[Rfam]
Rfam assigns this 117-nucleotide sequence from Salisediminibacterium selenitireducens to the family "epsC RNA". The family's consensus secondary structure is taken from published work. The family's RNA type in Rfam is cis-regulatory element.
RNA sequence: AGGUGAUUUCUCCUGCACCUUUAUCAAUGGAGGAACUCGACUUUGCUGUGGGUCCCAAAGGGACCUUAGGUGCAGACAGUUACCGGCGGUGAAGUGUGAGGUGAGGUUGGAUGCCUU
Numbered sequence: 001a002g003g004u005g006a007u008u009u010c011u012c013c014u015g016c017a018c019c020u021u022u023a024u025c026a027a028u029g030g031a032g033g034a035a036c037u038c039g040a041c042u043u044u045g046c047u048g049u050g051g052g053u054c055c056c057a058a059a060g061g062g063a064c065c066u067u068a069g070g071u072g073c074a075g076a077c078a079g080u081u082a083c084c085g086g087c088g089g090u091g092a093a094g095u096g097u098g099a100g101g102u103g104a105g106g107u108u109g110g111a112u113g114c115c116u117u
Stems, first nucleotide, its partner, number of pairs: 001020004007035007036100004040095008050066003054062003069084004103117005